The family of this 107-nucleotide RNA sequence from Cannabis sativa is "Plant small nucleolar RNA R71". The literature on the family includes a 2003 paper in Trends Plant Sci by Brown et al., "Plant snoRNAs: functional evolution and new modes of gene expression". A search with the family's covariance model found it, with a score of 63 bits. Its family is annotated with nucleolus and RNA processing in the Gene Ontology.
[Rfam]
RNA sequence: AUGCCAUGAUGUGGACACUUUCGCAAAAAUUCCUUAAACCUCUCCCACGCAUCACUUGUGGACACAUCUUCAAGUUGCUGAAAAGACAAUAUCUCACUUCUGAAUUU
Dot-bracket structure: (.(.((..................................................(..(..........)..)..........................))..).)